Rfam assigns this 93-nucleotide RNA sequence from Tissierella sp. P1 to the family "THF (Tetrahydrofolate) riboswitch aptamer".
Tetrahydrofolate (THF) riboswitch was first reported for Ames et al. as an RNA motif in 5' untranslated (5'-UTR)regions of folate transport and biosynthesis genes in Firmicutes genomes.
Pairs were carried over by alignment from the consensus structure, which is taken from published work.
Rfam 15.1 lists 747 matches to the family in 747 species.
The organism belongs to Tissierella, within Bacteria.
RNA sequence: GACAGAGUAGAUAACAAGCGUUAAGUGUUUGAGAAUGGAACGUUGUCUCAAGACGAAAAGCUAUGCUUGCGGUUUGUUAUCGCGUUCACUGCU
Numbered sequence: 001g002a003c004a005g006a007g008u009a010g011a012u013a014a015c016a017a018g019c020g021u022u023a024a025g026u027g028u029u030u031g032a033g034a035a036u037g038g039a040a041c042g043u044u045g046u047c048u049c050a051a052g053a054c055g056a057a058a059a060g061c062u063a064u065g066c067u068u069g070c071g072g073u074u075u076g077u078u079a080u081c082g083c084g085u086u087c088a089c090u091g092c093u
Stems, first nucleotide, its partner, number of pairs: 001093001003091003010081009019071003025054002028052007038087005058068004